Shown here is a 46-nucleotide RNA, a member of the family "ssNA-helicase RNA". By type it is a small RNA.
RNA sequence: UGCCCCACGGUAAGUAUUACCGUGGGGAAGCAAGGGAGCGGUAGCA
Numbered sequence: 001u002g003c004c005c006c007a008c009g010g011u012a013a014g015u016a017u018u019a020c021c022g023u024g025g026g027g028a029a030g031c032a033a034g035g036g037a038g039c040g041g042u043a044g045c046a
Base pairs, nucleotide, nucleotide: 001029003027004026005025006024007023008022009021010020